[Rfam]
RNA sequence: UAGCUUUGUCCUAAGUCAAACUAUCUUAAGUUUGACAAAGUUUAUGGAGAGGAGUCAAGAGUAUAAACAUUUAUGACAACUAUAAAUAUAUUUCAUGAUGAAUCUUAUGAUACUUAUUUAGUAUCAUAAAUAUUGAUGCUUUUUUGUAUAAACUUGGUCAAACUUAAGACGGUUUGACUUUGGACUAAGCUAG
Numbered sequence: 001u002a003g004c005u006u007u008g009u010c011c012u013a014a015g016u017c018a019a020a021c022u023a024u025c026u027u028a029a030g031u032u033u034g035a036c037a038a039a040g041u042u043u044a045u046g047g048a049g050a051g052g053a054g055u056c057a058a059g060a061g062u063a064u065a066a067a068c069a070u071u072u073a074u075g076a077c078a079a080c081u082a083u084a085a086a087u088a089u090a091u092u093u094c095a096u097g098a099u100g101a102a103u104c105u106u107a108u109g110a111u112a113c114u115u116a117u118u119u120a121g122u123a124u125c126a127u128a129a130a131u132a133u134u135g136a137u138g139c140u141u142u143u144u145u146g147u148a149u150a151a152a153c154u155u156g157g158u159c160a161a162a163c164u165u166a167a168g169a170c171g172g173u174u175u176g177a178c179u180u181u182g183g184a185c186u187a188a189g190c191u192a193g
Stems, first nucleotide, its partner, number of pairs: 005188002008185002011182001013180010024169003031162005043148008062138003066134002069131007078119002081116001
Shown here is a 193-nucleotide sequence from Dichanthelium oligosanthes, a member of the family "MIR1435 microRNA precursor family".
The base pairs follow the family's consensus structure, which was predicted with RNAalifold.
The match comes from Rfam's covariance-model search (97 bits).
NCBI's taxonomy places the organism under Eukaryota, Embryophyta, Spermatophyta, Paniceae, Dichanthelium.